[Rfam]
RNA: MIR6459 microRNA precursor family
RNA sequence: AAGAAGACAAUCUCAAGCCCAAAUUCGAUCUGACUUUGCCGGUACCUUGUUAAGCAAGAUCGAAUUUGUGCUUGAGCUCGACUUCUA
Numbered sequence: 001a002a003g004a005a006g007a008c009a010a011u012c013u014c015a016a017g018c019c020c021a022a023a024u025u026c027g028a029u030c031u032g033a034c035u036u037u038g039c040c041g042g043u044a045c046c047u048u049g050u051u052a053a054g055c056a057a058g059a060u061c062g063a064a065u066u067u068g069u070g071c072u073u074g075a076g077c078u079c080g081a082c083u084u085c086u087a
Stems, first nucleotide, its partner, number of pairs: 002086005008080001010078001012076007020068012034054003038050002